Shown here is a 102-nucleotide sequence from Paenibacillus sp. CAA11, a member of the family "Purine riboswitch aptamer". A search with the family's covariance model found it, with a score of 83 bits. Pairs were carried over by alignment from the consensus structure, which is taken from published work. NCBI's taxonomy places the organism under Bacteria, Bacilli, Caryophanales, Paenibacillaceae, Paenibacillus.
[Rfam]
RNA sequence: UAGGCGCCCAUAUAUAAGUCUCGUAUAAUGCCGGGAAUAUGGCCCGGAAGUCUCUACCUGGAAACCGUAAAUUUCCGGACUACGAGGGAAGCGGCAGGAAAG
Numbered sequence: 001u002a003g004g005c006g007c008c009c010a011u012a013u014a015u016a017a018g019u020c021u022c023g024u025a026u027a028a029u030g031c032c033g034g035g036a037a038u039a040u041g042g043c044c045c046g047g048a049a050g051u052c053u054c055u056a057c058c059u060g061g062a063a064a065c066c067g068u069a070a071a072u073u074u075c076c077g078g079a080c081u082a083c084g085a086g087g088g089a090a091g092c093g094g095c096a097g098g099a100a101a102g
Stems, first nucleotide, its partner, number of pairs: 019087007029049001031047005058078007
Riboswitches are metabolite binding domains within certain messenger RNAs that serve as precision sensors for their corresponding targets.